[Rfam]
Shown here is an 87-nucleotide RNA from Triticum aestivum, a member of the family "MIR1120/MIR1122 microRNA precursor family". A reference for the family is Yao et al. (2007), "Cloning and characterization of microRNAs from wheat (Triticum aestivum L.)", Genome Biol. The match comes from Rfam's covariance-model search (88 bits). NCBI's taxonomy places the organism under Eukaryota, Streptophyta, Streptophytina, Triticinae, Triticum. Pairs were carried over by alignment from the consensus structure, which was predicted with RNAalifold.
RNA sequence: AUACUCCCUCCGUCCCAUAAUGUAAGACACUUUUUGACACUAUACUAGUGUCGAAACACGUCUUACAUUAUGGGACGGAGGGAGUAG
Numbered sequence: 001a002u003a004c005u006c007c008c009u010c011c012g013u014c015c016c017a018u019a020a021u022g023u024a025a026g027a028c029a030c031u032u033u034u035u036g037a038c039a040c041u042a043u044a045c046u047a048g049u050g051u052c053g054a055a056a057c058a059c060g061u062c063u064u065a066c067a068u069u070a071u072g073g074g075a076c077g078g079a080g081g082g083a084g085u086a087g
Stems, first nucleotide, its partner, number of pairs: 003085003007081005013075005019069010032056010